[Rfam]
RNA: Eukaryotic large subunit ribosomal RNA, nucleotides 2314 to 2913
Organism: Phaeodactylum tricornutum
RNA sequence: CGGGGAAAGAAGACCCUGUUGAGCUUGACUCUAGUCCGACGUUGUGAAAUGACUUAUGAGGUGUAGAAUAAGUGGGAGCUUCGGCGCACAUGAAAUACCACUACUCGUAAUGUUGUUUUACUUAUUCCGUGACGUAGCAUCCAGCGCCCUCACGGGUCCUGGUUCUGGUAUUAAGCCUUGGUUAGACUUGGCGAGCUACGCGGGAGACAACGUCAGGUGGGGAGUUUGGCUGGGGCGGCACAUCUGUUAAAGAAUAACACAGGUGUCCUAAGGUCAGCUCAAUGAGAACAGAAAUCUCAUGUAGAACAAAAGGGUAAAAGCUGACUUGAUUUUGAUUUUCAGUACGAAUACAAACCGAGAAAUCGUGGCCUAUCGAUCCUUUCAGUUUUUGGAAUUUGAAGUGAGAGGUGUCAGAAAAGUUACCACAGGGAUAACUGGCUUGUGGCAGCCAAGCGUUCAUAGCGACGUUGCUUUUUGAUUCUUCGAUGUCGGCUCUUCCUAUCAUUGUGUCGCAGAAGUCACCAAGUGUAGGAUUGUUCACCCACUAACAGGGAACGUGAGCUGGGUUUAGACCGUCGUGAGACAGGUUAGUUUUACCCU
Numbered sequence: 001c002g003g004g005g006a007a008a009g010a011a012g013a014c015c016c017u018g019u020u021g022a023g024c025u026u027g028a029c030u031c032u033a034g035u036c037c038g039a040c041g042u043u044g045u046g047a048a049a050u051g052a053c054u055u056a057u058g059a060g061g062u063g064u065a066g067a068a069u070a071a072g073u074g075g076g077a078g079c080u081u082c083g084g085c086g087c088a089c090a091u092g093a094a095a096u097a098c099c100a101c102u103a104c105u106c107g108u109a110a111u112g113u114u115g116u117u118u119u120a121c122u123u124a125u126u127c128c129g130u131g132a133c134g135u136a137g138c139a140u141c142c143a144g145c146g147c148c149c150u151c152a153c154g155g156g157u158c159c160u161g162g163u164u165c166u167g168g169u170a171u172u173a174a175g176c177c178u179u180g181g182u183u184a185g186a187c188u189u190g191g192c193g194a195g196c197u198a199c200g201c202g203g204g205a206g207a208c209a210a211c212g213u214c215a216g217g218u219g220g221g222g223a224g225u226u227u228g229g230c231u232g233g234g235g236c237g238g239c240a241c242a243u244c245u246g247u248u249a250a251a252g253a254a255u256a257a258c259a260c261a262g263g264u265g266u267c268c269u270a271a272g273g274u275c276a277g278c279u280c281a282a283u284g285a286g287a288a289c290a291g292a293a294a295u296c297u298c299a300u301g302u303a304g305a306a307c308a309a310a311a312g313g314g315u316a317a318a319a320g321c322u323g324a325c326u327u328g329a330u331u332u333u334g335a336u337u338u339u340c341a342g343u344a345c346g347a348a349u350a351c352a353a354a355c356c357g358a359g360a361a362a363u364c365g366u367g368g369c370c371u372a373u374c375g376a377u378c379c380u381u382u383c384a385g386u387u388u389u390u391g392g393a394a395u396u397u398g399a400a401g402u403g404a405g406a407g408g409u410g411u412c413a414g415a416a417a418a419g420u421u422a423c424c425a426c427a428g429g430g431a432u433a434a435c436u437g438g439c440u441u442g443u444g445g446c447a448g449c450c451a452a453g454c455g456u457u458c459a460u461a462g463c464g465a466c467g468u469u470g471c472u473u474u475u476u477g478a479u480u481c482u483u484c485g486a487u488g489u490c491g492g493c494u495c496u497u498c499c500u501a502u503c504a505u506u507g508u509g510u511c512g513c514a515g516a517a518g519u520c521a522c523c524a525a526g527u528g529u530a531g532g533a534u535u536g537u538u539c540a541c542c543c544a545c546u547a548a549c550a551g552g553g554a555a556c557g558u559g560a561g562c563u564g565g566g567u568u569u570a571g572a573c574c575g576u577c578g579u580g581a582g583a584c585a586g587g588u589u590a591g592u593u594u595u596a597c598c599c600u
Base pairs, nucleotide, nucleotide: 003600004599005598007595008594015429016428017427018426020425021424022421023420024419025418026417028225029224030223031222035217036216038214039213040212041211044121045120046119047118048117049116050115051114052113053112054110055109056108057107058106059105060104071102072101073100074099075098078085079084125205126204127203128202129201135198136197137196138195144157145156147154175192176191177190228241229239230238231237242264243263244262245261246260247259267368268367273325274324275323276322277321278320279305280304282300283299284298285297286296287295306315307314330354331353332352335349336348337347338346356365357364358363379407380406381405382404383403384402387401388400389399390398438479440477442476444472445471446470447469448468449467453463454462490565491563492562493561494560495557496554497553498552499551500550503528504527507522508521509520511518531543532542534540571589572588573587574586575584576583577582